[Rfam]
RNA sequence: UGAUUAACAAAACCGCAGGCAGGAGCGGGGGACCCAGGUUUCCCGGACGUCGAAUUGCGGACGUCCUUGGGGUGAAGCCGCCGAGAGCGCGAUCUGAAAGCGCCGGCCGGCCGGGCCAUUCCCGGGCCCGAACCCGACAGCUAACUUCGCAGGCGUGGGGGAAGGACAC
Numbered sequence: 001u002g003a004u005u006a007a008c009a010a011a012a013c014c015g016c017a018g019g020c021a022g023g024a025g026c027g028g029g030g031g032a033c034c035c036a037g038g039u040u041u042c043c044c045g046g047a048c049g050u051c052g053a054a055u056u057g058c059g060g061a062c063g064u065c066c067u068u069g070g071g072g073u074g075a076a077g078c079c080g081c082c083g084a085g086a087g088c089g090c091g092a093u094c095u096g097a098a099a100g101c102g103c104c105g106g107c108c109g110g111c112c113g114g115g116c117c118a119u120u121c122c123c124g125g126g127c128c129c130g131a132a133c134c135c136g137a138c139a140g141c142u143a144a145c146u147u148c149g150c151a152g153g154c155g156u157g158g159g160g161g162a163a164g165g166a167c168a169c
Base pairs, nucleotide, nucleotide: 001152005024025150026149027148028147029146030145035069036068037067038066070135071134072133078110079109080108113129114128115127116126
Background:
The record is a 169-nucleotide RNA from Frankia sp. R43, which matches "c-di-AMP riboswitch aptamer (ydaO/yuaA leader)" in Rfam. The source organism's lineage runs through Bacteria, Bacillati, Actinomycetota, Frankiaceae and Frankia. A search with the family's covariance model found it, with a score of 61 bits.